Streptococcus sRNA SpF19: a 98-nucleotide RNA sequence from Streptococcus merionis. It is annotated as a small RNA. It scores 82 bits against the family's covariance model. A reference for the family is Mann et al. (2012), "Control of virulence by small RNAs in Streptococcus pneumoniae", PLoS Pathog. The base pairs follow the family's consensus structure, which was predicted with mfold. The organism belongs to Streptococcus, within Bacteria.
[Rfam]
RNA sequence: AAAUAAAAGGAUGUUAUCACUUUAAAGUGAGCAGGAACCUAUUUAAAUGAGUCGGUAGUCUAUUUAUCGAUGUCUUUUAGGUAGGUUCUUUUAUUUUG
Numbered sequence: 001a002a003a004u005a006a007a008a009g010g011a012u013g014u015u016a017u018c019a020c021u022u023u024a025a026a027g028u029g030a031g032c033a034g035g036a037a038c039c040u041a042u043u044u045a046a047a048u049g050a051g052u053c054g055g056u057a058g059u060c061u062a063u064u065u066a067u068c069g070a071u072g073u074c075u076u077u078u079a080g081g082u083a084g085g086u087u088c089u090u091u092u093a094u095u096u097u098g
Stems, first nucleotide, its partner, number of pairs: 001096007017030005033089001035088012049074001051071004055065001057063001